Overview: Rfam assigns this 509-nucleotide sequence from Streptomyces sp. ISL-96 to the family "Saccharopolyspora sRNA 350".
[Rfam]
RNA sequence: CGGGCCGUGUACCCCCAGGUGCCGUUCUCCUCGACGAGGGCCUGGUCGCCGAGGUACGCCCCGUCGGCGAGGACGCCGAGCACCGCCUCGUCGUCGUACGGGCCGUCGCCGACCUUCUCGAUCCGGCCGUGCGCCAGUAGAAAGACCGUUUCAGCAGCGUCGCCGGCGGUUGCCAGCACUUCACCGGCCGCGUACUCUCGCUGUGCGCAGCGCUGCGCCAGCUCGCUGAGGACCGCCUCGUCGUCGAAGGUGCGCAGCGCGGGCAGUUCGCACAGCUCGCCCGGGAUGACCUGGACGCGGUCCCCGGUCUGUACGAACGUCACUCGCCCGUCGCCCACGGCGUAACUCAGUCGGCGGUUCACCCGGUACGUACCGCCCUGGACCUGGACCCACGGCAGCAUCCGCAGCAGCCACCGUGAGGUGAUCUCCUGCAUCUGCGGUGCGGACUUGGUGGUGGUCGCCAAGUUCCGCGCGGCGGCCGUACCGAGACUCUGCUGCGGUUGUGCCUG
Numbered sequence: 001c002g003g004g005c006c007g008u009g010u011a012c013c014c015c016c017a018g019g020u021g022c023c024g025u026u027c028u029c030c031u032c033g034a035c036g037a038g039g040g041c042c043u044g045g046u047c048g049c050c051g052a053g054g055u056a057c058g059c060c061c062c063g064u065c066g067g068c069g070a071g072g073a074c075g076c077c078g079a080g081c082a083c084c085g086c087c088u089c090g091u092c093g094u095c096g097u098a099c100g101g102g103c104c105g106u107c108g109c110c111g112a113c114c115u116u117c118u119c120g121a122u123c124c125g126g127c128c129g130u131g132c133g134c135c136a137g138u139a140g141a142a143a144g145a146c147c148g149u150u151u152c153a154g155c156a157g158c159g160u161c162g163c164c165g166g167c168g169g170u171u172g173c174c175a176g177c178a179c180u181u182c183a184c185c186g187g188c189c190g191c192g193u194a195c196u197c198u199c200g201c202u203g204u205g206c207g208c209a210g211c212g213c214u215g216c217g218c219c220a221g222c223u224c225g226c227u228g229a230g231g232a233c234c235g236c237c238u239c240g241u242c243g244u245c246g247a248a249g250g251u252g253c254g255c256a257g258c259g260c261g262g263g264c265a266g267u268u269c270g271c272a273c274a275g276c277u278c279g280c281c282c283g284g285g286a287u288g289a290c291c292u293g294g295a296c297g298c299g300g301u302c303c304c305c306g307g308u309c310u311g312u313a314c315g316a317a318c319g320u321c322a323c324u325c326g327c328c329c330g331u332c333g334c335c336c337a338c339g340g341c342g343u344a345a346c347u348c349a350g351u352c353g354g355c356g357g358u359u360c361a362c363c364c365g366g367u368a369c370g371u372a373c374c375g376c377c378c379u380g381g382a383c384c385u386g387g388a389c390c391c392a393c394g395g396c397a398g399c400a401u402c403c404g405c406a407g408c409a410g411c412c413a414c415c416g417u418g419a420g421g422u423g424a425u426c427u428c429c430u431g432c433a434u435c436u437g438c439g440g441u442g443c444g445g446a447c448u449u450g451g452u453g454g455u456g457g458u459c460g461c462c463a464a465g466u467u468c469c470g471c472g473c474g475g476c477g478g479c480c481g482u483a484c485c486g487a488g489a490c491u492c493u494g495c496u497g498c499g500g501u502u503g504u505g506c507c508u509g
Stems, first nucleotide, its partner, number of pairs: 007389002010386002015381002018328002021325001025322001028319001031316002036312001038310005045305001048302001049300003054233002057230001059228001062225002065111004075103001077102001080099001082097002085094002118221001120219001122217001126213002130209001131206004139198002143196002154191002157188002159184002162177001165174003236294002240290006250282001252280003256277003259271003329342004353377005361371002391431002394428002397425001399423003403418003407415001437476002440473001442471005447465006477508002480503002484499001487496002

Notes
Lineage of the source: Bacteria > Bacillati > Kitasatosporales > Streptomycetaceae > Streptomyces. Rfam classes the family as an antisense RNA. Gene Ontology term of the family: regulation of secondary metabolite biosynthetic process. On this family, see Liu et al., PLoS One 2013: "Prediction and characterization of small non-coding RNAs related to secondary metabolites in Saccharopolyspora erythraea".